A member of the RNA family "Guanidine-I riboswitch aptamer" from Leuconostoc fallax, 100 nucleotides long.
Taxonomically the source falls in Leuconostoc (Bacteria, Bacillati, Lactobacillales, Lactobacillaceae).
Rfam describes the family as follows. This family represents a conserved RNA structure found upstream of the ykkC and yxkD genes in Bacillus subtilis and related genes in other bacteria.
It scores 93 bits against the family's covariance model.

RNA sequence: UUACUAGCUUUCUAGGGUUCCGCUAUUCAUAGGUCUGGUCCAAGAGAAAGCCUACAAUAUGAUUGUAUUGUAGCCACGGAAGGAUAAAAGCCUGGGAGAU
Numbered sequence: 001u002u003a004c005u006a007g008c009u010u011u012c013u014a015g016g017g018u019u020c021c022g023c024u025a026u027u028c029a030u031a032g033g034u035c036u037g038g039u040c041c042a043a044g045a046g047a048a049a050g051c052c053u054a055c056a057a058u059a060u061g062a063u064u065g066u067a068u069u070g071u072a073g074c075c076a077c078g079g080a081a082g083g084a085u086a087a088a089a090g091c092c093u094g095g096g097a098g099a100u
Stems, first nucleotide, its partner, number of pairs: 007051006015041002020038002022035001023032003052073008075095001077098001081093003